Background:
This 129-nucleotide RNA from Elysia chlorotica belongs to the Rfam family "Small Cajal body specific RNA 8". By type it is a small Cajal body RNA.
RNA sequence: UGGAAGUGUGAUACAUGGUCGACUUGUCAGUGUCAGUCGCCCUCACUUGAUCUUCCGACAGGAAAAUUGCUCUCUGAUGACCUCACUGAACUCGAGUUUGCUUUGAGGACAGAUACGGAGUGGACAUUU
Numbered sequence: 001u002g003g004a005a006g007u008g009u010g011a012u013a014c015a016u017g018g019u020c021g022a023c024u025u026g027u028c029a030g031u032g033u034c035a036g037u038c039g040c041c042c043u044c045a046c047u048u049g050a051u052c053u054u055c056c057g058a059c060a061g062g063a064a065a066a067u068u069g070c071u072c073u074c075u076g077a078u079g080a081c082c083u084c085a086c087u088g089a090a091c092u093c094g095a096g097u098u099u100g101c102u103u104u105g106a107g108g109a110c111a112g113a114u115a116c117g118g119a120g121u122g123g124a125c126a127u128u129u
Stems, first nucleotide, its partner, number of pairs: 002056005015043001017041002021038004067123007081108005
Gene Ontology terms of the family: Cajal body, nucleolus and RNA processing. Rfam's curators write: scaRNAs are a specific class of small nuclear RNAs which localise to the Cajal bodies and guide the modification of RNA polymerase II transcribed spliceosomal RNAs U1, U2, U4, U5 and U12. On this family, see Darzacq et al., EMBO J 2002: "Cajal body-specific small nuclear RNAs: a novel class of 2'-O-methylation and pseudouridylation guide RNAs". NCBI's taxonomy places the organism under Eukaryota, Eumetazoa, Bilateria, Placobranchoidea, Elysia. The match comes from Rfam's covariance-model search (54 bits).